[Rfam]
RNA sequence: AUAAUGAUACUUCCGGAUUGUAAGGAAAUUUGCAGUCCGGUCAAUUUGAAUGACGGUGCAAGACCGAUGU
Numbered sequence: 001a002u003a004a005u006g007a008u009a010c011u012u013c014c015g016g017a018u019u020g021u022a023a024g025g026a027a028a029u030u031u032g033c034a035g036u037c038c039g040g041u042c043a044a045u046u047u048g049a050a051u052g053a054c055g056g057u058g059c060a061a062g063a064c065c066g067a068u069g070u
Base pairs, nucleotide, nucleotide: 012067013040014039015038016037017036018035019034020033021032022031023030024029041053042052043051054066055065056064
RNA: pemK RNA
Organism: Roseburia zhanii